[Rfam]
RNA sequence: UUUGCCGGGGUGGGCAGGCCCUAUGGCCAAUUAACCCUAAUGGCGGCUGCGCCCCUCACGCUCGCCCGCUGUUUUACUCGCUGACUUUCAGCGGGCAAAGGAAGCGGCCUAGGGGAAAGGGGAUGGGGGAAAAGAGUUCCGGCCUCCAAAAAAAAAAAAAAGCCAGCGAGGGGGAUCCACACCCCGGCCCACCCUGGGGUCCCUGUCUCUUCUCCGCAACCGGAGAUGCUCCCGCCCUCGCCCCCCGUGGAGGCCGCGGUCGGCGGGCUCAGCGCCGCUGCCGCCGCGAAGAGUUCGUCUCUGUCAGCCUCGGCGGCGGCCGGGAGCGCGGGGCGGCGCGCCCGCCCCGGCGGCCGCGGGGCCCCAGCAGAGCAAAACGGGCGCGGCGCCGCUGGGCGCUGAGCAGCCGCCGCCCCUGAGCCGUGGGGUGCGCGGAGGGCGCCGCCCCGACACCC
Dot-bracket structure: ...(((((((((.(.(..((((............................(((.(........((((((((........[[[[.[[[[)))))))).......).))).................................................]]].].]]]]...)))).).).))))))))).....(((((((...........................(((((((....((((............(((((.((((.(((.....)))...))))))))).((((.....)))).........)))).....))))))).................................)))))))...........((((..((((((................((((..((((........))))...))))..))))))))))........
RNA: Vertebrate telomerase RNA
Organism: Chloebia gouldiae